The family of this 135-nucleotide sequence from Heterocephalus glaber is "Small nucleolar RNA SNORA15". Rfam 15.1 lists 974 matches to the family in 624 species. By type it is an H/ACA-box small nucleolar RNA. Rfam describes the family as follows. ACA15 is a member of the H/ACA class of snoRNA that guide the sites of modification of uridines to pseudouridines. The literature on the family includes a 2001 paper in EMBO J by Huttenhofer et al., "RNomics: an experimental approach that identifies 201 candidates for novel, small, non-messenger RNAs in mouse". Pairs were carried over by alignment from the consensus structure, which was predicted with RNAfold.
RNA sequence: GCAUGGCUGAAUACUGUGUUCUCAUCAGUAGUUUACACAGCCAGACACCAUGCUAAAGAAAAGGCUUCCCUUUAAAAGGACUGUGAUGAUACACUGUUUUUUUCACAGUGUAUCAGUAUUAAAGUGACUACAAAU
Numbered sequence: 001g002c003a004u005g006g007c008u009g010a011a012u013a014c015u016g017u018g019u020u021c022u023c024a025u026c027a028g029u030a031g032u033u034u035a036c037a038c039a040g041c042c043a044g045a046c047a048c049c050a051u052g053c054u055a056a057a058g059a060a061a062a063g064g065c066u067u068c069c070c071u072u073u074a075a076a077a078g079g080a081c082u083g084u085g086a087u088g089a090u091a092c093a094c095u096g097u098u099u100u101u102u103u104c105a106c107a108g109u110g111u112a113u114c115a116g117u118a119u120u121a122a123a124g125u126g127a128c129u130a131c132a133a134a135u
Stems, first nucleotide, its partner, number of pairs: 001053006014040006067127002070124006084118002087115010